[Rfam]
RNA sequence: GGGAAUCUGACUGUCUAAUUAAAACAUAGCAUUGCGAUGGCCAGAAAGUGGUGUUGACGCAAUGUGAUUUCUGCCCAGUGCUCUGAAUGUCAAAGUGAAGUAAUUCAACCAAGCGCGGGUAAACGGCGGGAGUAACUAUGACUCGAGCAACCUCGAGAGGGUCAUGAGAGCGGCAGCGGGCCGCUAGCGGAGGGGGUACGCCCCCCGAGCGACACUAUCAAAUUGCGGGGACCUCCAGACACCUCCGCCACCAACCCGGGGCCCGAAAGGGCGCCGGGGGCCGGGACCAGCGGUUCCCGGGUACGGUAACAGCGCGUAGGCCCUGGACGAUCCGCAGCCAAACCCGCCGCCUCCCCAGGGAGCGCGGGUGCAGUUCAACGACCAAAUGGUAGUGGGGCCCCCCCGGGGGCCCUAAGAUAUGGUCUGCCGGAGAGCCUGACGGCCUCCGCUCGGAAAGAGCUCUUAAGGUAGCCAAAUGCCUCGUCAUCUAAUUAGUGACGCGCAUGAAUGGAUUAACGAGAUUCCCACUG
Number, nucleotide and partner (000 for none) at each position: 001g526002g525003g524004a523005a522006u521007c520008u518009g517010a000011c000012u026013g025014u024015c000016u000017a000018a000019u000020u000021a000022a000023a000024a014025c013026a012027u000028a000029g065030c064031a063032u062033u061034g060035c059036g058037a000038u000039g000040g052041c051042c050043a049044g000045a000046a000047a000048g000049u043050g042051g041052u040053g000054u000055u000056g000057a000058c036059g035060c034061a033062a032063u031064g030065u029066g000067a000068u000069u512070u511071c510072u000073g127074c126075c125076c000077a000078g124079u123080g120081c119082u118083c117084u000085g116086a000087a000088u115089g114090u113091c000092a000093a000094a000095g000096u107097g106098a105099a104100g000101u000102a000103a000104u099105u098106c097107a096108a000109c000110c000111a000112a000113g090114c089115g088116c085117g083118g082119g081120u080121a000122a000123a079124c078125g075126g074127c073128g462129g461130g460131a000132g000133u458134a000135a000136c000137u000138a000139u000140g000141a000142c000143u000144c000145g000146a000147g000148c000149a000150a000151c000152c000153u000154c000155g000156a000157g000158a000159g000160g000161g000162u000163c000164a000165u000166g000167a000168g000169a000170g000171c000172g000173g000174c000175a000176g000177c000178g000179g000180g000181c000182c000183g000184c000185u000186a000187g000188c000189g000190g000191a000192g000193g000194g000195g000196g000197u000198a000199c000200g000201c000202c000203c000204c000205c000206c000207g000208a000209g000210c000211g000212a000213c000214a000215c000216u000217a000218u000219c000220a000221a000222a000223u000224u000225g000226c000227g000228g000229g000230g000231a000232c000233c000234u000235c000236c000237a000238g000239a000240c000241a000242c000243c000244u000245c000246c000247g000248c000249c000250a000251c000252c000253a000254a000255c000256c000257c000258g000259g000260g000261g000262c000263c000264c000265g000266a000267a000268a000269g000270g000271g000272c000273g000274c000275c000276g000277g000278g000279g000280g000281c000282c000283g000284g000285g000286a000287c000288c000289a000290g000291c000292g000293g000294u000295u000296c000297c000298c000299g000300g000301g000302u000303a000304c000305g000306g000307u000308a000309a000310c000311a000312g000313c000314g000315c000316g000317u000318a000319g000320g000321c000322c000323c000324u000325g000326g000327a000328c000329g000330a000331u000332c000333c000334g000335c000336a000337g000338c000339c000340a000341a000342a000343c000344c000345c000346g000347c000348c000349g000350c000351c000352u000353c000354c000355c000356c000357a000358g000359g000360g000361a000362g000363c000364g000365c000366g000367g000368g000369u000370g000371c000372a000373g000374u000375u000376c000377a000378a000379c000380g000381a000382c000383c000384a000385a000386a000387u000388g000389g000390u000391a000392g000393u000394g000395g000396g000397g000398c000399c000400c000401c000402c000403c000404c000405g000406g000407g000408g000409g000410c000411c000412c000413u000414a000415a000416g000417a000418u000419a000420u000421g000422g000423u000424c000425u000426g000427c000428c000429g000430g000431a000432g000433a000434g000435c000436c000437u000438g000439a000440c000441g000442g000443c000444c000445u000446c000447c000448g000449c000450u000451c000452g000453g000454a000455a000456a000457g000458a133459g000460c130461u129462c128463u467464u000465a000466a000467g463468g000469u000470a000471g000472c000473c000474a000475a000476a000477u000478g000479c000480c000481u000482c000483g499484u498485c497486a496487u495488c000489u000490a000491a000492u000493u000494a000495g487496u486497g485498a484499c483500g000501c000502g000503c000504a000505u000506g000507a000508a000509u000510g071511g070512a069513u000514u000515a000516a000517c009518g008519a000520g007521a006522u005523u004524c003525c002526c001527a000528c000529u000530g000
RNA: Eukaryotic large subunit ribosomal RNA, nucleotides 2368 to 2897